[Rfam]
RNA: Lysine riboswitch aptamer
RNA sequence: CAACACUAUAGAGGUUGCGGAUAAUCACGAAGGUACUGGAGUGUGUAUUCACGAUGAAGGUAACGUAAGGAUGUCCGCCGAAAUGUCUUGCAAGAAUGCACUUGUUGGAUGUUGGGCCACCGGGAAAUACCCGCUGGACUGUCUCAAUGAGUUUUACCAAGCUUAUUGAGGAGCGCUAUGUUUUUG
Numbered sequence: 001c002a003a004c005a006c007u008a009u010a011g012a013g014g015u016u017g018c019g020g021a022u023a024a025u026c027a028c029g030a031a032g033g034u035a036c037u038g039g040a041g042u043g044u045g046u047a048u049u050c051a052c053g054a055u056g057a058a059g060g061u062a063a064c065g066u067a068a069g070g071a072u073g074u075c076c077g078c079c080g081a082a083a084u085g086u087c088u089u090g091c092a093a094g095a096a097u098g099c100a101c102u103u104g105u106u107g108g109a110u111g112u113u114g115g116g117c118c119a120c121c122g123g124g125a126a127a128u129a130c131c132c133g134c135u136g137g138a139c140u141g142u143c144u145c146a147a148u149g150a151g152u153u154u155u156a157c158c159a160a161g162c163u164u165a166u167u168g169a170g171g172a173g174c175g176c177u178a179u180g181u182u183u184u185u186g
Stems, first nucleotide, its partner, number of pairs: 007180005017078006024072003032064001034062004082113007090105004114140002117137003121133004142171011